Shown here is a 56-nucleotide sequence from Rhodococcoides trifolii, a member of the family "msiK RNA". The family's RNA type in Rfam is cis-regulatory element.
RNA sequence: AAAUUGAACUUCCACUCGGAUCGUCCGGCACGUUCCUGCCGGUGAAGGAGAAGCAC
Numbered sequence: 001a002a003a004u005u006g007a008a009c010u011u012c013c014a015c016u017c018g019g020a021u022c023g024u025c026c027g028g029c030a031c032g033u034u035c036c037u038g039c040c041g042g043u044g045a046a047g048g049a050g051a052a053g054c055a056c
Stems, first nucleotide, its partner, number of pairs: 009047003013044002025042006